[Rfam]
RNA sequence: GAAGCGUCUACCCCGCACCGGGCGACCGGGUAAGGCGAGGACCGCCCGCUGGUAACGGUGGGCUGCG
Number, nucleotide and partner (000 for none) at each position: 001g000002a000003a000004g000005c000006g000007u000008c000009u000010a000011c040012c039013c000014c037015g036016c000017a000018c029019c028020g027021g026022g000023c000024g000025a000026c021027c020028g019029g018030g000031u000032a000033a000034g000035g000036c015037g014038a000039g012040g011041a000042c000043c000044g063045c062046c061047c060048g059049c058050u057051g056052g000053u000054a000055a000056c051057g050058g049059u048060g047061g046062g045063c044064u000065g000066c000067g000
The record is a 67-nucleotide sequence from Actinokineospora alba, which matches "Transposase-2 RNA" in Rfam. Lineage of the source: Bacteria > Actinomycetota > Pseudonocardiales > Pseudonocardiaceae > Actinokineospora. The base pairs follow the family's consensus structure, which is taken from published work. The family has 151 seed sequences and 214 matches in Rfam 15.1.